[Rfam]
RNA: mir-29 microRNA precursor family
RNA sequence: AGGGGACUGAUUUUAUUUGGUGGCUUAGAUAUAUUUAGUUCUAGCACCAUUUGAAAUCAGUGCUUA
Numbered sequence: 001a002g003g004g005g006a007c008u009g010a011u012u013u014u015a016u017u018u019g020g021u022g023g024c025u026u027a028g029a030u031a032u033a034u035u036u037a038g039u040u041c042u043a044g045c046a047c048c049a050u051u052u053g054a055a056a057u058c059a060g061u062g063c064u065u066a
Stems, first nucleotide, its partner, number of pairs: 002065003005061001007060009018049005026043004